[Rfam]
RNA: PyrR binding site
Organism: Planococcus rifietoensis
RNA sequence: AUCACCUUUAAGAACAGUCCAGAGAGGCUGAAAAGGGAUAUUCGCAAAGCCGGAAGUGUGUCUUCUGGAAGGUUUUUUUCUGCGCUUAUGCACCCUUCGCCUCUUCGGCGGAGGGUUUUUUUCAU
Numbered sequence: 001a002u003c004a005c006c007u008u009u010a011a012g013a014a015c016a017g018u019c020c021a022g023a024g025a026g027g028c029u030g031a032a033a034a035g036g037g038a039u040a041u042u043c044g045c046a047a048a049g050c051c052g053g054a055a056g057u058g059u060g061u062c063u064u065c066u067g068g069a070a071g072g073u074u075u076u077u078u079u080c081u082g083c084g085c086u087u088a089u090g091c092a093c094c095c096u097u098c099g100c101c102u103c104u105u106c107g108g109c110g111g112a113g114g115g116u117u118u119u120u121u122u123c124a125u
Base pairs, nucleotide, nucleotide: 005036006035007034008033009032015030016029017028018027019026056077058075060073061072062071063070064069088120090118092116093115094114095113096112097111098110099109100108101107